[Rfam]
RNA: T-box leader
Organism: Fictibacillus macauensis
RNA sequence: UGUAAAAUGAUGACGAGAGAAAAGUAUGUUUAAUUCCUUUUGUUACUAGAGAAGAAACCCACGGCUGCAAGGUUUCUCGGAAGGCUAAACAGAAAGCUACUCUUAUAAGUGCAGCUAAUACCUGCCGGUUGAAGGCCGUUACCCUUUAAACGAAGGUGAUAAAGCAUCAUGUGUGCUUUAUAACCAGGGUGGUACCGCGAGAAUUCAACUCUCGUCCCUGAU
Number, nucleotide and partner (000 for none) at each position: 001u000002g000003u000004a000005a000006a000007a000008u108009g000010a000011u000012g000013a000014c000015g104016a103017g102018a101019g000020a000021a000022a000023a000024g000025u000026a000027u091028g090029u089030u088031u087032a086033a000034u000035u000036c000037c000038u000039u000040u080041u079042g078043u000044u000045a000046c000047u000048a000049g000050a000051g000052a000053a077054g076055a075056a074057a073058c072059c000060c000061a000062c000063g000064g000065c000066u000067g000068c000069a000070a000071g000072g058073u057074u056075u055076c054077u053078c042079g041080g040081a000082a000083g000084g000085c000086u032087a031088a030089a029090c028091a027092g000093a000094a000095a000096g000097c000098u000099a000100c000101u018102c017103u016104u015105a000106u000107a000108a008109g000110u000111g000112c124113a123114g122115c000116u120117a000118a000119u000120a116121c000122c114123u113124g112125c000126c138127g137128g136129u000130u000131g000132a000133a000134g000135g000136c128137c127138g126139u000140u000141a000142c000143c000144c000145u000146u000147u000148a000149a000150a000151c000152g000153a000154a000155g000156g000157u000158g000159a181160u180161a179162a178163a177164g176165c175166a174167u173168c000169a000170u000171g000172u000173g167174u166175g165176c164177u163178u162179u161180a160181u159182a000183a000184c000185c000186a219187g218188g217189g216190u000191g000192g000193u000194a000195c000196c000197g215198c214199g213200a212201g211202a000203a000204u000205u000206c000207a000208a000209c000210u000211c201212u200213c199214g198215u197216c189217c188218c187219u186220g000221a000222u000